[Rfam]
RNA: tRNA
Organism: Eubacteriaceae bacterium CHKCI005
RNA sequence: GCGGAUGUAGUUUAAUAGAAGAACCCCAGCUUUCCAAGCUGGUUGUGCGGGUUCGAUUCCCGCCAUUCGCU
Number, nucleotide and partner (000 for none) at each position: 001g070002c069003g068004g067005a066006u065007g064008u000009a000010g024011u023012u022013u021014a000015a000016u000017a000018g000019a000020a000021g013022a012023a011024c010025c000026c042027c041028a040029g039030c038031u000032u000033u000034c000035c000036a000037a000038g030039c029040u028041g027042g026043u000044u000045g000046u000047g063048c062049g061050g060051g059052u000053u000054c000055g000056a000057u000058u000059c051060c050061c049062g048063c047064c007065a006066u005067u004068c003069g002070c001071u000